[Rfam]
RNA sequence: UCCUGACCACACGGGGGCCUCGGAAGAGGCUGAGACCGGGCUGACACCGCCCGAGACCGUCGAACCUGAUCCGGCUCGUACCGGCGUAGGAAGUGAGGACAGCCCAUGG
Numbered sequence: 001u002c003c004u005g006a007c008c009a010c011a012c013g014g015g016g017g018c019c020u021c022g023g024a025a026g027a028g029g030c031u032g033a034g035a036c037c038g039g040g041c042u043g044a045c046a047c048c049g050c051c052c053g054a055g056a057c058c059g060u061c062g063a064a065c066c067u068g069a070u071c072c073g074g075c076u077c078g079u080a081c082c083g084g085c086g087u088a089g090g091a092a093g094u095g096a097g098g099a100c101a102g103c104c105c106a107u108g109g
Base pairs, nucleotide, nucleotide: 008095009094010093011060012059013058014057017030018029019028020027021026037053038052039051040050041049065090066089067088068087071084072083073082074081
Shown here is a 109-nucleotide RNA sequence from Microbacterium sp. Root53, a member of the family "TPP riboswitch aptamer (THI element)". Rfam's curators write: Vitamin B(1) in its active form thiamin pyrophosphate (TPP) is an essential coenzyme that is synthesised by coupling of pyrimidine and thiazole moieties in bacteria. The previously detected thiamin-regulatory element, thi box was extended, resulting in a new, highly conserved RNA secondary structure, the THI element, which is widely distributed in eubacteria and also occurs in some archaea. Analysis of operon structures identified a large number of new candidate thiamin-regulated genes, mostly transporters, in various prokaryotic organisms. The THI element is a riboswitch that directly binds to TPP to regulate gene expression through a variety of mechanisms in archaea, bacteria and eukaryotes. through a variety of mechanisms in archaea, bacteria and eukaryotes. Tandem TPP riboswitches have been reported where both TPP riboswitches respond independently to TPP. The structure of TPP riboswitch has been reported for Escherichia coli and Arabidopsis thaliana. NCBI's taxonomy places the organism under Bacteria, Bacillati, Actinomycetota, Micrococcales, Microbacterium. Rfam links the family to the GO term thiamine pyrophosphate binding.